Clostridiales-1 RNA: a 176-nucleotide sequence from Firmicutes bacterium CAG:882. NCBI's taxonomy places the organism under Bacteria, Bacillati, Bacillota.

RNA sequence: UGUAAUAAUCUCACCAAUAGAUAAACUGCGAGCCUGCUCGCAGGCGGAGCGGUUUAUCUAUUGAGGGAGUAAACGGAAAUGAGCAAGUAAGCCGUUCGCCUUUUGAACGGCUGGAUUGCGAAUUUCCGUCAGAAUUUUCGGAAGUGCUCCGCACUCUCGAAAAUUCUGUUAUUGCA
Numbered sequence: 001u002g003u004a005a006u007a008a009u010c011u012c013a014c015c016a017a018u019a020g021a022u023a024a025a026c027u028g029c030g031a032g033c034c035u036g037c038u039c040g041c042a043g044g045c046g047g048a049g050c051g052g053u054u055u056a057u058c059u060a061u062u063g064a065g066g067g068a069g070u071a072a073a074c075g076g077a078a079a080u081g082a083g084c085a086a087g088u089a090a091g092c093c094g095u096u097c098g099c100c101u102u103u104u105g106a107a108c109g110g111c112u113g114g115a116u117u118g119c120g121a122a123u124u125u126c127c128g129u130c131a132g133a134a135u136u137u138u139c140g141g142a143a144g145u146g147c148u149c150c151g152c153a154c155u156c157u158c159g160a161a162a163a164u165u166c167u168g169u170u171a172u173u174g175c176a
Stems, first nucleotide, its partner, number of pairs: 001176007010069003016062014032045005073129008083119004090112009132166007144154004
A search with the family's covariance model found it, with a score of 90 bits.